[Rfam]
RNA: mir-658 microRNA precursor family
RNA sequence: GCCCGGUUGCUGUGGUUGCAGGCCCGGCCCGCCUGCUCGCUCGCUGACAGCGAGACUUAGGGCGGAGGGAACUGGGUCCGUUGGUCGGUCGGGAACGAGG
Dot-bracket structure: .(.((.((.(((((((.((.((((...(((..(((((.((.((((...)))).).)....))))).))).....)))).))..))))..))).)))).).